[Rfam]
RNA sequence: CGAGUUGACCGAGACAAUCGCUGCAUCAUCUUUAUGGAUGGUGGGGAGGAAAGUCCGGGCUCCAAAGAGCAGGGUGCCAGAUAACGUCUGGGCGGCGUGAGCCGACGACAAGUGCAGCAGAGAGAAGACCGCCAAGCUUGCUUGGUAAGGGUGAAAGGGUGCGGUAAGAGCGCACCGGGCCACUGGUAACAGUUGGUUGCAAGGUAAACUCCACUCGGAGCAAGAUCAAAUAGGUUCCCGCAUGGCGUGGCUCGCGUUGGGAACGGGUAGAUUGCUUGAGCCUGCGAGCGAUUGCAGGCCUAGACGAAUGAUUGUCGCUGUCGCAAGACAGAACAGAACCCGGCUUACAAGUGUCAACUCACUAA
Numbered sequence: 001c002g003a004g005u006u007g008a009c010c011g012a013g014a015c016a017a018u019c020g021c022u023g024c025a026u027c028a029u030c031u032u033u034a035u036g037g038a039u040g041g042u043g044g045g046g047a048g049g050a051a052a053g054u055c056c057g058g059g060c061u062c063c064a065a066a067g068a069g070c071a072g073g074g075u076g077c078c079a080g081a082u083a084a085c086g087u088c089u090g091g092g093c094g095g096c097g098u099g100a101g102c103c104g105a106c107g108a109c110a111a112g113u114g115c116a117g118c119a120g121a122g123a124g125a126a127g128a129c130c131g132c133c134a135a136g137c138u139u140g141c142u143u144g145g146u147a148a149g150g151g152u153g154a155a156a157g158g159g160u161g162c163g164g165u166a167a168g169a170g171c172g173c174a175c176c177g178g179g180c181c182a183c184u185g186g187u188a189a190c191a192g193u194u195g196g197u198u199g200c201a202a203g204g205u206a207a208a209c210u211c212c213a214c215u216c217g218g219a220g221c222a223a224g225a226u227c228a229a230a231u232a233g234g235u236u237c238c239c240g241c242a243u244g245g246c247g248u249g250g251c252u253c254g255c256g257u258u259g260g261g262a263a264c265g266g267g268u269a270g271a272u273u274g275c276u277u278g279a280g281c282c283u284g285c286g287a288g289c290g291a292u293u294g295c296a297g298g299c300c301u302a303g304a305c306g307a308a309u310g311a312u313u314g315u316c317g318c319u320g321u322c323g324c325a326a327g328a329c330a331g332a333a334c335a336g337a338a339c340c341c342g343g344c345u346u347a348c349a350a351g352u353g354u355c356a357a358c359u360c361a362c363u364a365a
Stems, first nucleotide, its partner, number of pairs: 002360008011348001013316007021046002024043006051346003055343005060220004067253004072216005077091005092106001093104004107211002112209002114205002129150002131146006158176006177200001178198005183192003224273004234264006244258005280299008
RNA: Bacterial RNase P class A
Organism: Parashewanella curva